[Rfam]
RNA sequence: ACGAUAUUCCGCUGUGAGAGAAGCUCAUAAGAAUAUUUG
Number, nucleotide and partner (000 for none) at each position: 001a000002c000003g037004a036005u035006a034007u033008u032009c031010c000011g000012c000013u029014g028015u027016g026017a025018g024019a000020g000021a000022a000023g000024c018025u017026c016027a015028u014029a013030a000031g009032a008033a007034u006035a005036u004037u003038u000039g000
RNA: Ribosomal protein L19 leader
Organism: Enterococcus sp. NBRC 3427